The record is a 78-nucleotide sequence, which matches "CyVA-1 RNA" in Rfam. By type it is a small RNA. It is one of the family's seed sequences. Pairs were carried over by alignment from the consensus structure, which is taken from published work.
[Rfam]
RNA sequence: UGGACGGCAACGGGUUUUUGUCGUUUCCUCUGUUUUGGGCCAGCCGAAGCGGAACGACUGUCAGGCUAGCCACGUCCU
Numbered sequence: 001u002g003g004a005c006g007g008c009a010a011c012g013g014g015u016u017u018u019u020g021u022c023g024u025u026u027c028c029u030c031u032g033u034u035u036u037g038g039g040c041c042a043g044c045c046g047a048a049g050c051g052g053a054a055c056g057a058c059u060g061u062c063a064g065g066c067u068a069g070c071c072a073c074g075u076c077c078u
Stems, first nucleotide, its partner, number of pairs: 002077005010033004038071003042067004